[Rfam]
RNA sequence: AUGGAGACAUGGCGUAAAGCCAGAAGGGAGACGCUGAUUCUCAACUUGAACUGAUUUGCAUCUCAUUUU
Numbered sequence: 001a002u003g004g005a006g007a008c009a010u011g012g013c014g015u016a017a018a019g020c021c022a023g024a025a026g027g028g029a030g031a032c033g034c035u036g037a038u039u040c041u042c043a044a045c046u047u048g049a050a051c052u053g054a055u056u057u058g059c060a061u062c063u064c065a066u067u068u069u
Stems, first nucleotide, its partner, number of pairs: 004064004010022004026059001028057002
RNA: ctgf/hcs24 CAESAR
Organism: Galbula dea